[Rfam]
RNA sequence: AAAAUUAAAAUAUAAUGCGUUCGUAUAUCCUUGACAAUAUGGGUCAAAAGUUUCUACCGGGGCACCGUAAAUGCUCUGACUAUGAAGGCAGAAUCUAGAUGA
Numbered sequence: 001a002a003a004a005u006u007a008a009a010a011u012a013u014a015a016u017g018c019g020u021u022c023g024u025a026u027a028u029c030c031u032u033g034a035c036a037a038u039a040u041g042g043g044u045c046a047a048a049a050g051u052u053u054c055u056a057c058c059g060g061g062g063c064a065c066c067g068u069a070a071a072u073g074c075u076c077u078g079a080c081u082a083u084g085a086a087g088g089c090a091g092a093a094u095c096u097a098g099a100u101g102a
Stems, first nucleotide, its partner, number of pairs: 018088001020086006031047005058078007
A member of the RNA family "Purine riboswitch aptamer" from Oceanobacillus profundus, 102 nucleotides long. From the family's description: Riboswitches are metabolite binding domains within certain messenger RNAs that serve as precision sensors for their corresponding targets. The match comes from Rfam's covariance-model search (83 bits). The base pairs follow the family's consensus structure, which is taken from published work. The organism belongs to Oceanobacillus, within Bacteria.